This 119-nucleotide RNA sequence from Syntrophothermus lipocalidus belongs to the Rfam family "Molybdenum/Tungsten riboswitch aptamer (Moco RNA motif)".
The literature on the family includes a 2008 paper in Mol Microbiol by Regulski et al., "in molybdenum cofactor and tungsten cofactor metabolism".
RNA sequence: UUAACAACUGUUCUCCGAGCUCUCGCGACCUAAGGCGGAAGCUAUGGUCCCUGAGCCGAUAGGGUAUGAGGGGAAACGCUCAUGCCUCCCGUUUGGAAAGGAGGGCUGCUUAUGCGGGU
Numbered sequence: 001u002u003a004a005c006a007a008c009u010g011u012u013c014u015c016c017g018a019g020c021u022c023u024c025g026c027g028a029c030c031u032a033a034g035g036c037g038g039a040a041g042c043u044a045u046g047g048u049c050c051c052u053g054a055g056c057c058g059a060u061a062g063g064g065u066a067u068g069a070g071g072g073g074a075a076a077c078g079c080u081c082a083u084g085c086c087u088c089c090c091g092u093u094u095g096g097a098a099a100g101g102a103g104g105g106c107u108g109c110u111u112a113u114g115c116g117g118g119u
Base pairs, nucleotide, nucleotide: 003113006110011105012104013103014102015101016100019056020055021054022053025050027049028048029047030046034043035042036041062087063086064085065084066083067082068081069080070079072077088096089095